The family of this 102-nucleotide sequence from Andreesenella acetica is "Purine riboswitch aptamer". Riboswitches are metabolite binding domains within certain messenger RNAs that serve as precision sensors for their corresponding targets.

RNA sequence: ACAAGAAAAAAGCAUAUGGUUCAUAUAAUCGCAGAAAUAUGGUCUGCAAGUUUCUACGAGGCUACCGUAAAUGGUCUCACUAUGAGCAAAGGUGUAUCUAAG
Numbered sequence: 001a002c003a004a005g006a007a008a009a010a011a012g013c014a015u016a017u018g019g020u021u022c023a024u025a026u027a028a029u030c031g032c033a034g035a036a037a038u039a040u041g042g043u044c045u046g047c048a049a050g051u052u053u054c055u056a057c058g059a060g061g062c063u064a065c066c067g068u069a070a071a072u073g074g075u076c077u078c079a080c081u082a083u084g085a086g087c088a089a090a091g092g093u094g095u096a097u098c099u100a101a102g
Stems, first nucleotide, its partner, number of pairs: 019087007029049001031047005058078007
Clan: Purine riboswitches.